[Rfam]
RNA sequence: CAUCUCCGAUGAGGAGGUUCUUGGCUACAUGCUCGCUGGUCUGGGCUCAGAAUAUGAGCCCCUUGUUGCUUCAAUCACGGCACGUGAUGAGCCAGUGAGCCUCGCUAGCUUCUAUGCGUAUUUGCUUAGCGCCGAGC
Numbered sequence: 001c002a003u004c005u006c007c008g009a010u011g012a013g014g015a016g017g018u019u020c021u022u023g024g025c026u027a028c029a030u031g032c033u034c035g036c037u038g039g040u041c042u043g044g045g046c047u048c049a050g051a052a053u054a055u056g057a058g059c060c061c062c063u064u065g066u067u068g069c070u071u072c073a074a075u076c077a078c079g080g081c082a083c084g085u086g087a088u089g090a091g092c093c094a095g096u097g098a099g100c101c102u103c104g105c106u107a108g109c110u111u112c113u114a115u116g117c118g119u120a121u122u123u124g125c126u127u128a129g130c131g132c133c134g135a136g137c
Stems, first nucleotide, its partner, number of pairs: 004136003008132001086106001088104004
Dot-bracket structure: ...(((.(.............................................................................(.((((.........)))).).........................).))).
About this RNA:
The record is a 137-nucleotide sequence from Triticum aestivum, which matches "Small nucleolar RNA Z247" in Rfam. Lineage of the source: Eukaryota > Viridiplantae > Magnoliopsida > Triticeae > Triticum. It is annotated as a C/D-box small nucleolar RNA. The family's consensus secondary structure was predicted with PFOLD. The literature on the family includes a 2003 paper in Nucleic Acids Res by Chen et al., "The high diversity of snoRNAs in plants: identification and comparative study of 120 snoRNA genes from Oryza sativa". It scores 55 bits against the family's covariance model.